[Rfam]
RNA sequence: AAUUGCGAAGAUAAAAACACAGUUCCGGUUGGUAGUCCGGACGCAGCAUGCAUAUGCUGUCAGUAACCUGCCUCCUUUGGUUGUCCGUUCUUUGUGAAUUUAAA
Numbered sequence: 001a002a003u004u005g006c007g008a009a010g011a012u013a014a015a016a017a018c019a020c021a022g023u024u025c026c027g028g029u030u031g032g033u034a035g036u037c038c039g040g041a042c043g044c045a046g047c048a049u050g051c052a053u054a055u056g057c058u059g060u061c062a063g064u065a066a067c068c069u070g071c072c073u074c075c076u077u078u079g080g081u082u083g084u085c086c087g088u089u090c091u092u093u094g095u096g097a098a099u100u101u102a103a104a
Stems, first nucleotide, its partner, number of pairs: 004096008022042002025040004043060006070081003
The family of this 104-nucleotide sequence from Aminipila terrae is "azaaromatic riboswitch aptamer (yjdF RNA)". NCBI's taxonomy places the organism under Bacteria, Bacillati, Clostridia, Peptostreptococcales, Aminipila.